[Rfam]
RNA: Group II catalytic intron D1-D4-3
Organism: Luteibaculum oceani
RNA sequence: UUUAGCGUGAGCUAUGCAGUGAAGGAAGCCAAACGGCAAAGUCUGGUACUGACGAACAAGAACGGCAUACCGAGGCCAUAUAGAGAGGGUAAGCAAGCACCUCUUUGUAAAGCCCGUAACCAACAAUCUCUAUUUGGUAGAUGCCGCAGGAAUCGGAGGAAGGAAGUUGUC
Numbered sequence: 001u002u003u004a005g006c007g008u009g010a011g012c013u014a015u016g017c018a019g020u021g022a023a024g025g026a027a028g029c030c031a032a033a034c035g036g037c038a039a040a041g042u043c044u045g046g047u048a049c050u051g052a053c054g055a056a057c058a059a060g061a062a063c064g065g066c067a068u069a070c071c072g073a074g075g076c077c078a079u080a081u082a083g084a085g086a087g088g089g090u091a092a093g094c095a096a097g098c099a100c101c102u103c104u105u106u107g108u109a110a111a112g113c114c115c116g117u118a119a120c121c122a123a124c125a126a127u128c129u130c131u132a133u134u135u136g137g138u139a140g141a142u143g144c145c146g147c148a149g150g151a152a153u154c155g156g157a158g159g160a161a162g163g164a165a166g167u168u169g170u171c
Base pairs, nucleotide, nucleotide: 001016003014004013005012006011028171030169031168032167037163042157043156044155045154046153047151049149050148051147063146064145065144066143067142068141075138076137077136080133081132082131083130084129085128087115088114089113090112093108094107095106096105